[Rfam]
RNA: c-di-AMP riboswitch aptamer (ydaO/yuaA leader)
Organism: Paenalicyclobacillus ferrooxydans
RNA sequence: CGUAAACUAUCGCUGAGUUCCAAUGGAAGCGGAGGACCCAAGUAAUUGGGGUGAAUCGCCGUUAGAGGCGUAGGGGUGCCUACAUCCGAACCCGUCAGCUAACUCCGUAAGCGCGUAGGUAUGUGCGG
Numbered sequence: 001c002g003u004a005a006a007c008u009a010u011c012g013c014u015g016a017g018u019u020c021c022a023a024u025g026g027a028a029g030c031g032g033a034g035g036a037c038c039c040a041a042g043u044a045a046u047u048g049g050g051g052u053g054a055a056u057c058g059c060c061g062u063u064a065g066a067g068g069c070g071u072a073g074g075g076g077u078g079c080c081u082a083c084a085u086c087c088g089a090a091c092c093c094g095u096c097a098g099c100u101a102a103c104u105c106c107g108u109a110a111g112c113g114c115g116u117a118g119g120u121a122u123g124u125g126c127g128g
Base pairs, nucleotide, nucleotide: 011113012112013111014110018028019027020026029108030107031106032105033104034103039048040047049093050092051091057070058069059068060067073087074086075085